[Rfam]
RNA sequence: CCUUGAAGUGCUGUAGCAGCACAUCAUGGUUUGCAUGCUCUGCUCGGGGUGCAGAUCAGGAUGUGCUGCUGCAGCAAGGGAAGG
Numbered sequence: 001c002c003u004u005g006a007a008g009u010g011c012u013g014u015a016g017c018a019g020c021a022c023a024u025c026a027u028g029g030u031u032u033g034c035a036u037g038c039u040c041u042g043c044u045c046g047g048g049g050u051g052c053a054g055a056u057c058a059g060g061a062u063g064u065g066c067u068g069c070u071g072c073a074g075c076a077a078g079g080g081a082a083g084g
Base pairs, nucleotide, nucleotide: 001084002083003082004081013072014071015070016069017068018067019066020065021064022063023062024061027058028057029056030055031054032053033052034051035050036049

Rfam assigns this 84-nucleotide RNA sequence from Junco hyemalis to the family "mir-15 microRNA precursor family". Rfam links the family to the GO terms miRNA-mediated post-transcriptional gene silencing and RISC complex. The literature on the family includes a 2001 paper in Science by Lagos-Quintana et al., "Identification of novel genes coding for small expressed RNAs". This family represents the related mir-15a and mir-15b sequences. In humans miR-15a and miR-16 are clustered within 0.5 kb at 13q14. The base pairs follow the family's consensus structure, which was predicted with RNAalifold. Lineage of the source: Eukaryota > Eumetazoa > Vertebrata > Tetrapoda > Junco.